[Rfam]
RNA sequence: AUCAUGGGGUUGCGAUCACCCCACGAGGCUACGGCUGAAGAAUCGCGUCCGUAAAACCGAGCCAACGGAGGACGCGCUAUG
Numbered sequence: 001a002u003c004a005u006g007g008g009g010u011u012g013c014g015a016u017c018a019c020c021c022c023a024c025g026a027g028g029c030u031a032c033g034g035c036u037g038a039a040g041a042a043u044c045g046c047g048u049c050c051g052u053a054a055a056a057c058c059g060a061g062c063c064a065a066c067g068g069a070g071g072a073c074g075c076g077c078u079a080u081g
Stems, first nucleotide, its partner, number of pairs: 005023006045075006
This 81-nucleotide RNA sequence from Rhizobium sp. JAB6 belongs to the Rfam family "chrB-a RNA".